[Rfam]
RNA sequence: GAGGUACCCUUAUGGGGCAGGACAUGCUUCAAUGGUGCUUUGGUGUUCACUAAGUCUGCCCCUUGAGUGUAUCACU
Numbered sequence: 001g002a003g004g005u006a007c008c009c010u011u012a013u014g015g016g017g018c019a020g021g022a023c024a025u026g027c028u029u030c031a032a033u034g035g036u037g038c039u040u041u042g043g044u045g046u047u048c049a050c051u052a053a054g055u056c057u058g059c060c061c062c063u064u065g066a067g068u069g070u071a072u073c074a075c076u
Stems, first nucleotide, its partner, number of pairs: 001075001003073005009067004014062006021056003029053001031051001033049003037044002

Overview: Shown here is a 76-nucleotide RNA sequence from Pipistrellus kuhlii, a member of the family "mir-9229 microRNA precursor family". The family has 7 seed sequences and 27,225 matches in Rfam 15.1. Gene Ontology terms of the family: miRNA-mediated post-transcriptional gene silencing and RISC complex.